Background: The record is a 178-nucleotide sequence from Alkalithermobacter paradoxus, which matches "Lysine riboswitch aptamer" in Rfam. The match comes from Rfam's covariance-model search (93 bits). About the family: Riboswitches are metabolite binding domains within certain messenger RNAs that serve as precision sensors for their corresponding targets.
RNA sequence: UACAUAAAUAGAGGUGCAGGGAAAAGGGUAGUUUUGGGUGAUAAGGAUAAGAACAUCCAAUACCAAAUACGAAUGGUUUCCUUGCCGAAAGAAUAUAUUAGUUCUUUAAUAUAUUCUUGGUUAUAAAGCAAAAUACUUUAUAACUGCUAUGAAGUAUUCAUAGAGAGCUAUUUAUGUA
Numbered sequence: 001u002a003c004a005u006a007a008a009u010a011g012a013g014g015u016g017c018a019g020g021g022a023a024a025a026g027g028g029u030a031g032u033u034u035u036g037g038g039u040g041a042u043a044a045g046g047a048u049a050a051g052a053a054c055a056u057c058c059a060a061u062a063c064c065a066a067a068u069a070c071g072a073a074u075g076g077u078u079u080c081c082u083u084g085c086c087g088a089a090a091g092a093a094u095a096u097a098u099u100a101g102u103u104c105u106u107u108a109a110u111a112u113a114u115u116c117u118u119g120g121u122u123a124u125a126a127a128g129c130a131a132a133a134u135a136c137u138u139u140a141u142a143a144c145u146g147c148u149a150u151g152a153a154g155u156a157u158u159c160a161u162a163g164a165g166a167g168c169u170a171u172u173u174a175u176g177u178a
Base pairs, nucleotide, nucleotide: 006173007172008171009170010169011168016085017084018083019082020081021080022079023078024077031070032069034067035066037064038063039062040061089118090117091116092115093114094113095112096111097110098109099108100107119145120144121143122142123141124140125139126138127137128136147163148162149161150160151159152158153157